[Rfam]
RNA sequence: GCCGGUGUGGCGGAAUGGUAGACGCGGCGGACUCAAAAUCCGCUUCUGGCGACAGAGUGUAGGUUCGAGUCCUAUCACCGGUA
Numbered sequence: 001g002c003c004g005g006u007g008u009g010g011c012g013g014a015a016u017g018g019u020a021g022a023c024g025c026g027g028c029g030g031a032c033u034c035a036a037a038a039u040c041c042g043c044u045u046c047u048g049g050c051g052a053c054a055g056a057g058u059g060u061a062g063g064u065u066c067g068a069g070u071c072c073u074a075u076c077a078c079c080g081g082u083a
Base pairs, nucleotide, nucleotide: 001082002081003080004079005078006077007076010025011024012023027043028042029041030040031039059075060074061073062072063071

Description
Rfam assigns this 83-nucleotide sequence from Frateuria terrea to the family "tRNA". The family's consensus secondary structure is taken from published work. The organism belongs to Frateuria, within Bacteria. Rfam describes the family as follows. Transfer RNA (tRNA) molecules are approximately 80 nucleotides in length. Gene Ontology term of the family: triplet codon-amino acid adaptor activity. Its Rfam clan is "tRNA clan".